RNA sequence: UGCCAUGCUUGGGGGCAUGGUCAUGCAGGGCUUAACUGAGAGGACAAUGGCAUGUAUAGGCAUAAUGCGGGGAUUUCGGGGUGUCCGUGGUUAGAGUUCUCUCAGG
Numbered sequence: 001u002g003c004c005a006u007g008c009u010u011g012g013g014g015g016c017a018u019g020g021u022c023a024u025g026c027a028g029g030g031c032u033u034a035a036c037u038g039a040g041a042g043g044a045c046a047a048u049g050g051c052a053u054g055u056a057u058a059g060g061c062a063u064a065a066u067g068c069g070g071g072g073a074u075u076u077c078g079g080g081g082u083g084u085c086c087g088u089g090g091u092u093a094g095a096g097u098u099c100u101c102u103c104a105g106g
Stems, first nucleotide, its partner, number of pairs: 001027003038103008057093003061089002067084003
The family of this 106-nucleotide sequence from Callipepla squamata is "Retrovirus direct repeat 1 (dr1)". The match comes from Rfam's covariance-model search (55 bits). A reference for the family is Aschoff et al. (1999), "Point mutations in the avian sarcoma/leukosis virus 3' untranslated region result in a packaging defect", J Virol. Rfam links the family to the GO term viral genome replication. The source organism's lineage runs through Eukaryota, Eumetazoa, Galloanserae, Galliformes and Callipepla. This family represents the direct repeat 1 (dr1) element commonly found in the 3' UTR of Avian sarcoma, Rous sarcoma and Avian leukosis viruses (Alpharetroviruses and Avian type C retroviruses). dr1 is required for efficient viral replication and is thought to be involved in genomic RNA packaging although this may not be its only role. The base pairs follow the family's consensus structure, which is taken from published work.